[Rfam]
Mason-Pfizer monkey virus packaging signal: a 273-nucleotide sequence from Sciurus vulgaris. About the family: This family represents a group of sequences that are related to the Mason-Pfizer monkey virus (MPMV) packaging signal. The packaging signal is located in the 5' UTR and is required for specific RNA encapsidation. The organism belongs to Sciurus, within Eukaryota.

RNA sequence: UGGCGCCUAACAGUGAGGCAUGGAUACUAGGGGUGAGGGAAGAGGCGUCUAAUAGUUUGGCCAAAAAAAGCGAAAGUCAGUUCCAGAAGGAUCGCCAUGGGAGCUUGCUGCACCGCUCUUAAAGGUACAGUAGCGCCUAACUAUGGGACAAGAAUUAAGUAAGCAUAAAGUUUUUGUUAAGCAAUUAAAAGAAGCUUUAAAGACAUGGGGAGUAAAGGUUAAGAGUAAUGAUCUUUUUAAGUUUUUUUUACCUUAUUAAAGACACCUGUCCGU
Numbered sequence: 001u002g003g004c005g006c007c008u009a010a011c012a013g014u015g016a017g018g019c020a021u022g023g024a025u026a027c028u029a030g031g032g033g034u035g036a037g038g039g040a041a042g043a044g045g046c047g048u049c050u051a052a053u054a055g056u057u058u059g060g061c062c063a064a065a066a067a068a069a070g071c072g073a074a075a076g077u078c079a080g081u082u083c084c085a086g087a088a089g090g091a092u093c094g095c096c097a098u099g100g101g102a103g104c105u106u107g108c109u110g111c112a113c114c115g116c117u118c119u120u121a122a123a124g125g126u127a128c129a130g131u132a133g134c135g136c137c138u139a140a141c142u143a144u145g146g147g148a149c150a151a152g153a154a155u156u157a158a159g160u161a162a163g164c165a166u167a168a169a170g171u172u173u174u175u176g177u178u179a180a181g182c183a184a185u186u187a188a189a190a191g192a193a194g195c196u197u198u199a200a201a202g203a204c205a206u207g208g209g210g211a212g213u214a215a216a217g218g219u220u221a222a223g224a225g226u227a228a229u230g231a232u233c234u235u236u237u238u239a240a241g242u243u244u245u246u247u248u249u250a251c252c253u254u255a256u257u258a259a260a261g262a263c264a265c266c267u268g269u270c271c272g273u
Stems, first nucleotide, its partner, number of pairs: 006032003013027003034043001081125002085120001093115001098110003131151001133149001136147004156199003159195002207248002209245005216234006258273001261270003
Dot-bracket structure: .....(((....(((.........)))..))).(........).....................................((..(.......(....(((.......)))....)....)...)).....(.(..((((....)))).).)....(((((.................................)).))).......(((((((..((((((.......))))))......))))).)).........(..(((....)))..)